[Rfam]
RNA sequence: GCAGACUCACUCUGUGCCUGACUGCAAUCUUCAGUCCAGGUGCUUUUUCAGUCUGCUAGAGUAAUGCUUCAGGAUGUCAAACACUUCUUUUCCUGUAGAAGACUGUUGCAAUUGUUCUUGAUACAGUUUU
Numbered sequence: 001g002c003a004g005a006c007u008c009a010c011u012c013u014g015u016g017c018c019u020g021a022c023u024g025c026a027a028u029c030u031u032c033a034g035u036c037c038a039g040g041u042g043c044u045u046u047u048u049c050a051g052u053c054u055g056c057u058a059g060a061g062u063a064a065u066g067c068u069u070c071a072g073g074a075u076g077u078c079a080a081a082c083a084c085u086u087c088u089u090u091u092c093c094u095g096u097a098g099a100a101g102a103c104u105g106u107u108g109c110a111a112u113u114g115u116u117c118u119u120g121a122u123a124c125a126g127u128u129u130u
Base pairs, nucleotide, nucleotide: 001056002055003054004053005052006051014043015042016041017040018039019038020037022034023033024032069121070120071119072118073117074115075114076112077111081107084105086102087101088100